[Rfam]
RNA sequence: AGAAAAGGUAGAGGUCGCGCGACCUAAGAGUACCCGCCGGAUGCCGCAGGGGCAGAGGAAGGCGGAGGAAAGGGGGAAGCGCCGAAGGAGUGGGCUGCCUGCCGGCGUACUUCUGGGCAUAGGGUUAAGAGCCCUGUGACUGUCAUCCGGACGGAUGGAGAGCUACUGAUCAG
Numbered sequence: 001a002g003a004a005a006a007g008g009u010a011g012a013g014g015u016c017g018c019g020c021g022a023c024c025u026a027a028g029a030g031u032a033c034c035c036g037c038c039g040g041a042u043g044c045c046g047c048a049g050g051g052g053c054a055g056a057g058g059a060a061g062g063c064g065g066a067g068g069a070a071a072g073g074g075g076g077a078a079g080c081g082c083c084g085a086a087g088g089a090g091u092g093g094g095c096u097g098c099c100u101g102c103c104g105g106c107g108u109a110c111u112u113c114u115g116g117g118c119a120u121a122g123g124g125u126u127a128a129g130a131g132c133c134c135u136g137u138g139a140c141u142g143u144c145a146u147c148c149g150g151a152c153g154g155a156u157g158g159a160g161a162g163c164u165a166c167u168g169a170u171c172a173g
Base pairs, nucleotide, nucleotide: 007167008166009165010164011163017082018081019080020079023076024075025074033067034065035064036063037062038061086114087113088112089111090110091109092108094106095105096104097103115141116140118138119137120136121135122134123133124132125131143158144157145156146155147154148153

About this RNA: The family of this 173-nucleotide RNA from Lachnoclostridium sp. An14 is "Lysine riboswitch aptamer". From the family's description: Riboswitches are metabolite binding domains within certain messenger RNAs that serve as precision sensors for their corresponding targets. Its family is annotated with lysine biosynthetic process in the Gene Ontology. The base pairs follow the family's consensus structure, which is taken from published work.